[Rfam]
RNA sequence: GUGCCUUAAACUAAUGAGUAAGGAAAAUAUAGAGCUUUGGUAACGCUUAGCUAUGCUCUAGAUAAAGCGAACCAAUUUUUGAAGAGGUACAGGUCGUCCCGUGGCUGUGCGAACUACUUUUUCGCGCGGCUGGGUGAAGCGAUUUACCUC
Number, nucleotide and partner (000 for none) at each position: 001g000002u000003g000004c023005c022006u021007u020008a019009a000010a000011c000012u000013a000014a000015u000016g000017a000018g000019u008020a007021a006022g005023g004024a000025a000026a000027a000028u000029a000030u000031a000032g000033a052034g051035c050036u049037u000038u000039g046040g000041u000042a000043a000044c000045g000046c039047u000048u000049a036050g035051c034052u033053a000054u070055g068056c067057u066058c000059u000060a000061g000062a000063u000064a000065a000066a057067g056068c055069g000070a054071a000072c000073c000074a000075a000076u000077u000078u000079u000080u000081g000082a000083a000084g150085a149086g148087g147088u146089a000090c000091a145092g144093g143094u142095c141096g140097u139098c000099c000100c134101g000102u000103g131104g130105c129106u128107g127108u000109g125110c124111g123112a122113a121114c000115u000116a000117c000118u000119u000120u000121u113122u112123c111124g110125c109126g000127c107128g106129g105130c104131u103132g000133g000134g100135u000136g000137a000138a000139g097140c096141g095142a094143u093144u092145u091146a088147c087148c086149u085150c084
This 150-nucleotide RNA sequence from Dinoponera quadriceps belongs to the Rfam family "U12 minor spliceosomal RNA". The family has 62 seed sequences and 2,106 matches in Rfam 15.1. The pairing is the family consensus, mapped onto this sequence. The source organism's lineage runs through Eukaryota, Opisthokonta, Mandibulata, Apocrita and Dinoponera.